[Rfam]
RNA sequence: AAAAUAGAAUUUGUUGCCAAGCAUUAUAUAUGCUAAAUAAAUUUUGCUAUAUGCUGGAAACUCCCUUUUUAUUAUAUAAAUAAUGAAGAAGGACAAUCAGCAGGGAACCAAAAGAAUAUAUUAUAUAUUCUGAGUAGGUCCCUCAGAGACUACAUGCAAAAUUAUCUUAAAUAAUAUAUAAAUAUUUACGGUAAAAAAUAUAGUCCGAUCAGAUACGAGAGUGUCUG
Numbered sequence: 001a002a003a004a005u006a007g008a009a010u011u012u013g014u015u016g017c018c019a020a021g022c023a024u025u026a027u028a029u030a031u032g033c034u035a036a037a038u039a040a041a042u043u044u045u046g047c048u049a050u051a052u053g054c055u056g057g058a059a060a061c062u063c064c065c066u067u068u069u070u071a072u073u074a075u076a077u078a079a080a081u082a083a084u085g086a087a088g089a090a091g092g093a094c095a096a097u098c099a100g101c102a103g104g105g106a107a108c109c110a111a112a113a114g115a116a117u118a119u120a121u122u123a124u125a126u127a128u129u130c131u132g133a134g135u136a137g138g139u140c141c142c143u144c145a146g147a148g149a150c151u152a153c154a155u156g157c158a159a160a161a162u163u164a165u166c167u168u169a170a171a172u173a174a175u176a177u178a179u180a181a182a183u184a185u186u187u188a189c190g191g192u193a194a195a196a197a198a199u200a201u202a203g204u205c206c207g208a209u210c211a212g213a214u215a216c217g218a219g220a221g222u223g224u225c226u227g
Base pairs, nucleotide, nucleotide: 022032023031024030041162042161043160044159045158047156052102053101054100055099056098057097062093063092064091066089067088068087069086070085071084072083103142104141108137109134114130115129116128117127118126146206148205149204150203151202152201164192165191166190168188169187170186171185172184212225213224214223215222216221
The record is a 227-nucleotide RNA from Coemansia aciculifera, which matches "Group I catalytic intron" in Rfam.
The match comes from Rfam's covariance-model search (64 bits).
From the family's description: Group I catalytic introns are large self-splicing ribozymes. They catalyse their own excision from mRNA, tRNA and rRNA precursors in a wide range of organisms.